[Rfam]
RNA sequence: CACACUGGGAGCUGUAACUCAGGGGCGGUAGCUAU
Numbered sequence: 001c002a003c004a005c006u007g008g009g010a011g012c013u014g015u016a017a018c019u020c021a022g023g024g025g026c027g028g029u030a031g032c033u034a035u
Stems, first nucleotide, its partner, number of pairs: 005022005
Dot-bracket structure: ....(((((........))))).............
RNA: JUMPstart RNA